[Rfam]
RNA: NiCo (Nickel/Cobalt) riboswitch aptamer
Nucleotides: 120
Base pairs, nucleotide, nucleotide: 010119011118012117013116016114018064019063020062022058023057024056025055026054027053028052029051030050031049032048067085068084069083070082071081087111088110089109090108091107
Number, partner (000 for none) and nucleotide at each position: 001000c002000a003000a004000u005000u006000a007000a008000a009000c010119a011118u012117g013116g014000a015000g016114c017000a018064g019063g020062c021000g022058a023057u024056g025055a026054c027053u028052u029051g030050g031049u032048a033000a034000u035000u036000a037000g038000c039000u040000u041000u042000c043000a044000u045000u046000u047000g048032u049031a050030c051029c052028g053027g054026g055025u056024c057023g058022u059000g060000g061000g062020g063019c064018u065000g066000g067085g068084c069083c070082g071081g072000g073000a074000c075000g076000a077000c078000a079000a080000c081071c082070c083069g084068g085067c086000a087111g088110c089109g090108g091107g092000a093000u094000g095000a096000a097000u098000c099000u100000u101000a102000c103000a104000g105000a106000g107091c108090c109089c110088g111087c112000g113000g114016g115000a116013c117012c118011g119010u120000u